[Rfam]
RNA: mir-9/mir-79 microRNA precursor family
RNA sequence: CGGCUCUUCUCUUUGGUUAUCUAGCUGUAUGAGUGCGCCUGGUUUCAUAAAGCUAGAGAACCGAACGUACGAACCG
Numbered sequence: 001c002g003g004c005u006c007u008u009c010u011c012u013u014u015g016g017u018u019a020u021c022u023a024g025c026u027g028u029a030u031g032a033g034u035g036c037g038c039c040u041g042g043u044u045u046c047a048u049a050a051a052g053c054u055a056g057a058g059a060a061c062c063g064a065a066c067g068u069a070c071g072a073a074c075c076g
Base pairs, nucleotide, nucleotide: 001076002075003074005072008069010067012065013064014063015062016061017060018059020057021056022055023054024053025052026051028049029048030047031046032045033044